The family of this 93-nucleotide RNA sequence from Leptolyngbya boryana is "TPP riboswitch aptamer (THI element)". The base pairs follow the family's consensus structure, which is taken from published work. The match comes from Rfam's covariance-model search (69 bits). Rfam describes the family as follows. Vitamin B(1) in its active form thiamin pyrophosphate (TPP) is an essential coenzyme that is synthesised by coupling of pyrimidine and thiazole moieties in bacteria.
RNA sequence: CAAUCAAGCUAGGGGUGCCCGACUGGGCUGAGAACAAACCCUUAGAACCUGAGACUGGGUAAUGCCAGCGAAGGGAAGCUCAUUAAUCAGAGG
Numbered sequence: 001c002a003a004u005c006a007a008g009c010u011a012g013g014g015g016u017g018c019c020c021g022a023c024u025g026g027g028c029u030g031a032g033a034a035c036a037a038a039c040c041c042u043u044a045g046a047a048c049c050u051g052a053g054a055c056u057g058g059g060u061a062a063u064g065c066c067a068g069c070g071a072a073g074g075g076a077a078g079c080u081c082a083u084u085a086a087u088c089a090g091a092g093g
Base pairs, nucleotide, nucleotide: 007080008079009078010077011042012041013040014039016036017028018027019026020025048074049073050072055068056067057066058065